[Rfam]
MIR396 microRNA precursor family: a 166-nucleotide RNA from Ricinus communis. Its family is annotated with RISC complex and miRNA-mediated post-transcriptional gene silencing in the Gene Ontology. Rfam's curators put it in the seed alignment. Rfam 15.1 lists 744 matches to the family in 207 species. NCBI's taxonomy places the organism under Eukaryota, Streptophyta, Euphorbiaceae, Acalyphoideae, Ricinus. A reference for the family is Xie et al. (2005), "Expression of Arabidopsis MIRNA genes", Plant Physiol.
RNA sequence: CUUUGUAUUCUUCCACAGCUUUCUUGAACUGCAUCUAUUACAGAACUGGUAGUAGUGCUUUUGCUUCCUUGCAAUUGCUUGCAUGCCACUGUACGGCUGGCUCCUUUUUUUUUUCUUCUUUUGUUUUGUUUUUGCGGUUCAAUAAAGCUGUGGGAAGAUACGAACA
Dot-bracket structure: ..(((((.....(((.((((((.((((.(((((...................................................................................................))))).)))).)))))).))).....)))))...